Description:
A member of the RNA family "6S / SsrS RNA" from Aestuariivirga litoralis, 163 nucleotides long. Rfam classes the family as a non-coding RNA gene. The organism belongs to Aestuariivirga, within Bacteria. From the family's description: E. coli 6S RNA was the first non coding RNA to be sequenced, but its function was unknown until recently. It consists of 184 nucleotides that fold into an extended hairpin structure with a large single-stranded internal bulge. The 6S RNA specifically associates with RNA polymerase holoenzyme containing the sigma70 specificity factor. It scores 74 bits against the family's covariance model.

[Rfam]
RNA sequence: GGCGGGCUGCCCGGUGCGUGAGAUGACAUUUUUUCCCUGGGGCCUAUGCGUUUCCGAAUGGGAGCUGUCCCUGGGCUUGGCCGUGGCCUUGCCCAAACGGCGCCCACCUACACUUGUAGGGACCCGGGAUCGUUAGUCACUCACGGCCCAUGGUGGCUCGCCA
Number, nucleotide and partner (000 for none) at each position: 001g000002g161003c160004g159005g158006g157007c156008u155009g154010c153011c152012c000013g148014g147015u146016g000017c145018g144019u143020g000021a000022g000023a000024u000025g000026a000027c000028a000029u000030u000031u000032u000033u000034u129035c128036c127037c126038u000039g125040g124041g123042g000043c121044c120045u000046a000047u000048g000049c000050g000051u000052u000053u000054c000055c000056g000057a000058a000059u000060g105061g104062g103063a000064g101065c100066u099067g098068u097069c000070c000071c000072u000073g094074g093075g092076c091077u000078u000079g088080g087081c086082c000083g000084u000085g000086g081087c080088c079089u000090u000091g076092c075093c074094c073095a000096a000097a068098c067099g066100g065101c064102g000103c062104c061105c060106a000107c000108c000109u000110a000111c000112a000113c000114u000115u000116g000117u000118a000119g000120g044121g043122a000123c041124c040125c039126g037127g036128g035129a034130u000131c000132g000133u000134u000135a000136g000137u000138c000139a000140c000141u000142c000143a019144c018145g017146g015147c014148c013149c000150a000151u000152g011153g010154u009155g008156g007157c006158u005159c004160g003161c002162c000163a000